[Rfam]
Rfam assigns this 158-nucleotide sequence from Elaeis guineensis to the family "small nucleolar RNA snoR143". For this family Rfam cites "Mining small RNA sequencing data: a new approach to identify small nucleolar RNAs in Arabidopsis" (Chen and Wu, Nucleic Acids Res, 2009). Lineage of the source: Eukaryota > Tracheophyta > Magnoliopsida > Elaeidinae > Elaeis. Rfam 15.1 lists 660 matches to the family in 212 species.
RNA sequence: CUGUCGAUCUAUGAGGUCUCACUCAUCUUUCUAGUGAGAUUUCAAGAUAUGGUGCAUACAGGAAAAGCUGUUUUACAGCAGCGGCCAGACAACCGUAGAGAUAGAUCCACAGGUGAGUGGUUUGGAUACCAUUUGUCUACUGAUUCUAUCUCACAUCA
Numbered sequence: 001c002u003g004u005c006g007a008u009c010u011a012u013g014a015g016g017u018c019u020c021a022c023u024c025a026u027c028u029u030u031c032u033a034g035u036g037a038g039a040u041u042u043c044a045a046g047a048u049a050u051g052g053u054g055c056a057u058a059c060a061g062g063a064a065a066a067g068c069u070g071u072u073u074u075a076c077a078g079c080a081g082c083g084g085c086c087a088g089a090c091a092a093c094c095g096u097a098g099a100g101a102u103a104g105a106u107c108c109a110c111a112g113g114u115g116a117g118u119g120g121u122u123u124g125g126a127u128a129c130c131a132u133u134u135g136u137c138u139a140c141u142g143a144u145u146c147u148a149u150c151u152c153a154c155a156u157c158a
Stems, first nucleotide, its partner, number of pairs: 001052001008047003012044012098152008116134002118131003